RNA: mir-Ro6-3 microRNA precursor family
Nucleotides: 071
Stems, first nucleotide, its partner, number of pairs: 004068007014057014029042004
Number, partner (000 for none) and nucleotide at each position: 001000c002000c003000g004068g005067a006066g007065c008064g009063g010062c011000g012000a013000c014057g015056g016055a017054g018053c019052c020051c021050g022049c023048u024047c025046g026045g027044u028000a029042u030041c031040g032039c033000g034000g035000a036000c037000g038000u039032g040031c041030g042029a043000g044027a045026c046025c047024g048023a049022g050021c051020g052019g053018g054017c055016u056015c057014c058000a059000u060000c061000c062010g063009c064008c065007g066006c067005u068004c069000g070000g071000u